[Rfam]
RNA sequence: UCCGGGGGAAGCUCACCGCCGAGGCCACGCACGGGGUGUGCGUCACCCACGCCCCGCCUCGGGGAAGGUCUGAGGGAAGGGCCGCCCGCGGCUCCAGCAGAGCCCCGCCCGCGAGGGGGCGGGUGAGCCACCAGCAAGGGGGGGCGCCGCGUUAUCUACUCGAUGGGCCGGUCCCUGGGCAGGAGAAGCCGAGGCGGGUUUCCGCAAGGGAGCCCCGGCGGAUGCUCGUGGCCCCGCGGUGCUUUGAGACAGACUCACGGCCGGCGAUUGAGUCCAAUGGGUGAGGUGGGGCAUCGCCCUACAACCCAAUUCAGACUACUCUCCCCCGGA
Numbered sequence: 001u002c003c004g005g006g007g008g009a010a011g012c013u014c015a016c017c018g019c020c021g022a023g024g025c026c027a028c029g030c031a032c033g034g035g036g037u038g039u040g041c042g043u044c045a046c047c048c049a050c051g052c053c054c055c056g057c058c059u060c061g062g063g064g065a066a067g068g069u070c071u072g073a074g075g076g077a078a079g080g081g082c083c084g085c086c087c088g089c090g091g092c093u094c095c096a097g098c099a100g101a102g103c104c105c106c107g108c109c110c111g112c113g114a115g116g117g118g119g120c121g122g123g124u125g126a127g128c129c130a131c132c133a134g135c136a137a138g139g140g141g142g143g144g145c146g147c148c149g150c151g152u153u154a155u156c157u158a159c160u161c162g163a164u165g166g167g168c169c170g171g172u173c174c175c176u177g178g179g180c181a182g183g184a185g186a187a188g189c190c191g192a193g194g195c196g197g198g199u200u201u202c203c204g205c206a207a208g209g210g211a212g213c214c215c216c217g218g219c220g221g222a223u224g225c226u227c228g229u230g231g232c233c234c235c236g237c238g239g240u241g242c243u244u245u246g247a248g249a250c251a252g253a254c255u256c257a258c259g260g261c262c263g264g265c266g267a268u269u270g271a272g273u274c275c276a277a278u279g280g281g282u283g284a285g286g287u288g289g290g291g292c293a294u295c296g297c298c299c300u301a302c303a304a305c306c307c308a309a310u311u312c313a314g315a316c317u318a319c320u321c322u323c324c325c326c327c328g329g330a
Base pairs, nucleotide, nucleotide: 001330002329003328004327007324008323009322012285013284014283015282016281017280020061021060022059023058024057034048035047036046037045038044070314071313072312073311074310080262081261082260083259090104091103092102093101094100105122106121107120108119109118110117123258124257125256126255127254129252143243144242145241146240147239148238149237150236151235286302287301288300289299290298291297292296

Annotation:
Rfam assigns this 330-nucleotide sequence from Cepphus grylle to the family "Nuclear RNase P". For this family Rfam cites "Eukaryotic Ribonuclease P: A Plurality of Ribonucleoprotein Enzymes" (Xiao et al., Annu Rev Biochem, 2002). Lineage of the source: Eukaryota > Metazoa > Craniata > Vertebrata > Cepphus. Ribonuclease P (RNase P) is a ubiquitous endoribonuclease, found in archaea, bacteria and eukarya as well as chloroplasts and mitochondria.